[Rfam]
RNA sequence: CAUUUGGUGGAAAGGUACUAUCUAAUAGUUUGGAAUGGUUUUAGAUUAAAAUUCUAUUAGAGUAACGACUAGAGGAAAAGUCUGGUGCCAGCACCCGCGGUAAUUCCAGCUCUAGU
Numbered sequence: 001c002a003u004u005u006g007g008u009g010g011a012a013a014g015g016u017a018c019u020a021u022c023u024a025a026u027a028g029u030u031u032g033g034a035a036u037g038g039u040u041u042u043a044g045a046u047u048a049a050a051a052u053u054c055u056a057u058u059a060g061a062g063u064a065a066c067g068a069c070u071a072g073a074g075g076a077a078a079a080g081u082c083u084g085g086u087g088c089c090a091g092c093a094c095c096c097g098c099g100g101u102a103a104u105u106c107c108a109g110c111u112c113u114a115g116u
Stems, first nucleotide, its partner, number of pairs: 001032002004028003008024004013019001039059001041056001043055003069115006082109004091098002
RNA: Eukaryotic small subunit ribosomal RNA, nucleotides 606 to 721
Organism: Allovahlkampfia spelaea